[Rfam]
RNA sequence: CUGGGUUAUGGGGACAUGUAUCCUCAAACCUGGCUGGGUAUGAUGGUUGGUGCCCUGUGUGCAUUAGCAGGCGUUCUAACUAUUGCCAUGCCAGUCCCUGUUAUUGUUAACAAU
Numbered sequence: 001c002u003g004g005g006u007u008a009u010g011g012g013g014a015c016a017u018g019u020a021u022c023c024u025c026a027a028a029c030c031u032g033g034c035u036g037g038g039u040a041u042g043a044u045g046g047u048u049g050g051u052g053c054c055c056u057g058u059g060u061g062c063a064u065u066a067g068c069a070g071g072c073g074u075u076c077u078a079a080c081u082a083u084u085g086c087c088a089u090g091c092c093a094g095u096c097c098c099u100g101u102u103a104u105u106g107u108u109a110a111c112a113a114u
Base pairs, nucleotide, nucleotide: 002113004111008107009106010105011104013102014101015100016099018097020095021094037077038076040074050062051061

Shown here is a 114-nucleotide RNA from Clarias magur, a member of the family "Potassium channel RNA editing signal". About the family: This family represents a group of sequences related to the human potassium channel Kv1.1 hairpin element which directs the efficient modification of an adenosine to inosine by an adenosine deaminase acting on RNA (ADAR). The ADAR modification causes an isoleucine/valine recoding event which lies in the ion-conducting pore of the potassium channel. It is thought that this editing event targets the process of fast inactivation and allows a more rapid recovery from inactivation at negative potentials. Rfam classes the family as a cis-regulatory element. Its family is annotated with adenosine to inosine editing in the Gene Ontology. Rfam 15.1 lists 14,095 matches to the family in 1,000 species. On this family, see Bhalla et al., Nat Struct Mol Biol 2004: "Control of human potassium channel inactivation by editing of a small mRNA hairpin". Lineage of the source: Eukaryota > Vertebrata > Ostariophysi > Clariidae > Clarias.